msiK RNA: a 61-nucleotide sequence from Serinicoccus hydrothermalis.
[Rfam]
RNA sequence: CGGAGUCAGUCCUUUACGACGGAUCGUCCGGCACGUACCUGCCGGUGAAGGAGAAGCAUCA
Numbered sequence: 001c002g003g004a005g006u007c008a009g010u011c012c013u014u015u016a017c018g019a020c021g022g023a024u025c026g027u028c029c030g031g032c033a034c035g036u037a038c039c040u041g042c043c044g045g046u047g048a049a050g051g052a053g054a055a056g057c058a059u060c061a
Stems, first nucleotide, its partner, number of pairs: 010052007028045006
Source information
It scores 62 bits against the family's covariance model. The source organism's lineage runs through Bacteria, Bacillati, Actinomycetes, Ornithinimicrobiaceae and Serinicoccus.